[Rfam]
RNA: tRNA
RNA sequence: AGGCACGUAGCUCAGGGGUAGAGUACUUGCUUGACAUGCAAGGGGUCGGCGGUUCGAAACCGCCCGUGCCUA
Numbered sequence: 001a002g003g004c005a006c007g008u009a010g011c012u013c014a015g016g017g018g019u020a021g022a023g024u025a026c027u028u029g030c031u032u033g034a035c036a037u038g039c040a041a042g043g044g045g046u047c048g049g050c051g052g053u054u055c056g057a058a059a060c061c062g063c064c065c066g067u068g069c070c071u072a
Base pairs, nucleotide, nucleotide: 001071002070003069004068005067006066007065010024011023012022013021026042027041028040029039030038048064049063050062051061052060